Record summary: A member of the RNA family "Lysine riboswitch aptamer" from Companilactobacillus versmoldensis, 173 nucleotides long. The base pairs follow the family's consensus structure, which is taken from published work.

RNA sequence: CAUGCAGAUAGAGGCGCAUUAAUUAAGAGUAAUGAUUUGGAGCAAGUAGGUUGCUAUGAAGGAUCAUGAAAGGAAUCAAUGCCGAAAUCGUUUCGUCCCUACAGCGAAACGAUUGGGUCGUUACUCAAUAAGUAACGGACUGUCGCACAUUGGUGCGUUGAGCUAUUGAUCAU
Numbered sequence: 001c002a003u004g005c006a007g008a009u010a011g012a013g014g015c016g017c018a019u020u021a022a023u024u025a026a027g028a029g030u031a032a033u034g035a036u037u038u039g040g041a042g043c044a045a046g047u048a049g050g051u052u053g054c055u056a057u058g059a060a061g062g063a064u065c066a067u068g069a070a071a072g073g074a075a076u077c078a079a080u081g082c083c084g085a086a087a088u089c090g091u092u093u094c095g096u097c098c099c100u101a102c103a104g105c106g107a108a109a110c111g112a113u114u115g116g117g118u119c120g121u122u123a124c125u126c127a128a129u130a131a132g133u134a135a136c137g138g139a140c141u142g143u144c145g146c147a148c149a150u151u152g153g154u155g156c157g158u159u160g161a162g163c164u165a166u167u168g169a170u171c172a173u
Stems, first nucleotide, its partner, number of pairs: 007167005016082005022076003032067007086114011115141002118138008144157005